[Rfam]
RNA sequence: UGAUGACAAAUCUCCGGAAUCUCUGUAUUUCUUUGAUGAAACGUGUGAACCCUUUUUCUGAUGACUGCUUUUUAAAAUCAUA
Numbered sequence: 001u002g003a004u005g006a007c008a009a010a011u012c013u014c015c016g017g018a019a020u021c022u023c024u025g026u027a028u029u030u031c032u033u034u035g036a037u038g039a040a041a042c043g044u045g046u047g048a049a050c051c052c053u054u055u056u057u058c059u060g061a062u063g064a065c066u067g068c069u070u071u072u073u074a075a076a077a078u079c080a081u082a
Base pairs, nucleotide, nucleotide: 003081004080005079006078